Eukaryotic large subunit ribosomal RNA: a 532-nucleotide part of an RNA from Plasmodium falciparum. It scores 2658 bits against the family's covariance model. The family's consensus secondary structure is taken from published work. Its family is annotated with ribosome and structural constituent of ribosome in the Gene Ontology.
[Rfam]
Nucleotides: 532
Stems, first nucleotide, its partner, number of pairs: 001498004009493008018484003035059005044049001060255002063252006069244005076194003080190004089180001090178002092175007101166005108159003113154004118149002256260001268477007275469002279293003296332008306321001308319004336463003340394003345391002347387004352383001355382003362375004395413006414418001434450005511528005
Number, partner (000 for none) and nucleotide at each position: 001498u002497a003496g004495a005000a006000a007000a008000a009493a010492g011491u012490a013489g014488g015487u016486a017000a018484g019483g020482g021000a022000a023000g024000u025000c026000g027000g028000c029000a030000a031000a032000a033000u034000a035059g036058a037057u038056c039055c040000g041000u042000a043000a044049c045000u046000u047000c048000g049044g050000g051000a052000a053000a054000a055039g056038g057037a058036u059035u060255g061254g062000c063252u064251c065250u066249g067248a068247g069244g070243a071242c072241a073240u074000u075000a076194g077193a078192a079000a080190a081189g082188a083187g084000a085000a086000g087000a088000a089180a090178a091177a092175a093174a094173g095172a096171g097170g098169g099000u100000c101166g102165a103164a104163a105162a106000u107000a108159a109158a110157a111000u112000u113154g114153c115152a116151g117000u118149u119148u120000u121000u122000a123000u124000u125000u126000g127000c128000u129000u130000u131000u132000c133000u134000u135000u136000c137000g138000a139000u140000u141000u142000g143000c144000u145000u146000g147000u148119a149118a150000u151116c152115u153114g154113c155000u156000u157110u158109u159108u160000c161000u162105u163104u164103u165102u166101c167000u168000u169098c170097u171096u172095u173094c174093u175092u176000u177091u178090u179000u180089u181000c182000u183000c184000c185000c186000c187083c188082u189081c190080u191000u192078u193077u194076c195000g196000c197000c198000u199000u200000c201000a202000c203000u204000u205000u206000a207000u208000u209000g210000u211000a212000a213000u214000u215000u216000u217000a218000u219000u220000a221000c222000u223000u224000u225000a226000a227000u228000u229000u230000g231000a232000u233000a234000c235000c236000u237000a238000u239000a240073a241072u242071g243070u244069u245000a246000a247068c248067u249066c250065a251064g252063a253000a254061c255060u256260g257000a258000a259000a260256c261000g262000g263000a264000c265000a266000a267000g268477g269476g270475g271474a272473a273472u274471c275469c276468g277000a278000c279293u280292g281291u282000u283000u284000a285000a286000u287000u288000a289000a290000a291281a292280c293279a294000u295000a296332g297331c298330a299329u300328u301327g302326u303325g304000a305000a306321a307000a308319g309318c310317c311316a312000c313000a314000a315000c316311u317310g318309g319308u320000a321306u322000u323000a324000a325303c326302a327301c328300a329299a330298u331297g332296u333000g334000a335000u336463u337462u338461c339000u340394g341393c342392c343000c344000a345391g346390u347387g348386c349385u350384u351000u352383g353000a354000a355382u356381g357380u358000c359000a360000a361000c362375u363374u364373g365372a366000u367000g368000a369000a370000a371000u372365u373364c374363a375362a376000u377000c378000a379000a380357g381356c382355g383352c384350a385349g386348g387347u388000a389000a390346a391345c392342g393341g394340c395413g396412g397411g398410a399409g400408u401000a402000a403000c404000u405000a406000u407000g408400a409399c410398u411397c412396u413395c414418u415000u416000a417000a418414g419000g420000u421000a422000g423000c424000c425000a426000a427000a428000u429000g430000c431000c432000u433000c434450g435449u436448c437447a438446u439000c440000u441000a442000a443000u444000u445000a446438g447437u448436g449435a450434c451000g452000c453000g454000c455000a456000u457000g458000a459000a460000u461338g462337g463336a464000u465000u466000a467000a468276c469275g470000a471274g472273a473272u474271u475270c476269c477268c478000a479000c480000u481000g482020u483019c484018c485000c486016u487015a488014c489013u490012u491011g492010c493009u494000a495004u496003c497002u498001a499000g500000c501000g502000a503000a504000a505000c506000c507000a508000c509000a510000g511528c512527c513526a514525a515524g516000g517000g518000a519000a520000c521000g522000g523000g524515c525514u526513u527512g528511g529000c530000a531000a532000a